This 158-nucleotide sequence from Salmonella enterica belongs to the Rfam family "STAXI RNA".
The family's consensus secondary structure is taken from published work.
By type it is a small RNA.
[Rfam]
RNA sequence: CGUUGUCUCUGACAACUGCCAAUGCCUGAGUGAUUUGAGACAGGCGCCUUCGGGUAAUCACAUGCCAAUGCCAUCAUAACCUGAGAGAUGGCGCUUUCGGGCGGUUCAAACCUGUUUAACCUUUGCAAACAGGAACCUGAUUACAGGUUAAGGUCCUU
Number, nucleotide and partner (000 for none) at each position: 001c000002g016003u015004u014005g013006u012007c000008u000009c000010u000011g000012a006013c005014a004015a003016c002017u000018g000019c000020c000021a000022a000023u000024g045025c044026c043027u042028g041029a000030g061031u060032g059033a058034u057035u056036u000037g000038a000039g000040a000041c028042a027043g026044g025045c024046g055047c054048c053049u000050u000051c000052g000053g048054g047055u046056a035057a034058u033059c032060a031061c030062a000063u000064g000065c000066c000067a000068a000069u000070g092071c091072c090073a089074u088075c000076a000077u000078a106079a105080c104081c103082u000083g000084a000085g000086a000087g000088a074089u073090g072091g071092c070093g102094c101095u100096u000097u000098c000099g000100g095101g094102c093103g081104g080105u079106u078107c000108a000109a000110a000111c133112c132113u131114g130115u129116u000117u000118a000119a154120c153121c152122u151123u150124u000125g000126c000127a000128a000129a115130c114131a113132g112133g111134a000135a000136c147137c146138u145139g000140a000141u000142u000143a000144c000145a138146g137147g136148u000149u000150a123151a122152g121153g120154u119155c000156c000157u000158u000